Source information:
The record is a 98-nucleotide RNA sequence from Gouania willdenowi, which matches "Small nucleolar RNA SNORD16" in Rfam. Rfam 15.1 lists 1,321 matches to the family in 655 species. The source organism's lineage runs through Eukaryota, Craniata, Vertebrata, Gobiesocinae and Gouania. The family is grouped with related families in Rfam's "SNORD16 clan". Rfam links the family to the GO terms nucleolus and RNA processing.

[Rfam]
RNA sequence: UGCUGUGAUGGUGUAAUUUGCGUCUGACUCUGUGUCCAGUGACAGUUGCCUUCUGUUAUACGCUGGCACAGACAGUUGAUGAACAAUGAGUCUGAGCA
Numbered sequence: 001u002g003c004u005g006u007g008a009u010g011g012u013g014u015a016a017u018u019u020g021c022g023u024c025u026g027a028c029u030c031u032g033u034g035u036c037c038a039g040u041g042a043c044a045g046u047u048g049c050c051u052u053c054u055g056u057u058a059u060a061c062g063c064u065g066g067c068a069c070a071g072a073c074a075g076u077u078g079a080u081g082a083a084c085a086a087u088g089a090g091u092c093u094g095a096g097c098a
Base pairs, nucleotide, nucleotide: 001098002097003096021081022080023079024078030071031070032069033068034067039063040062041057042056043055044054045053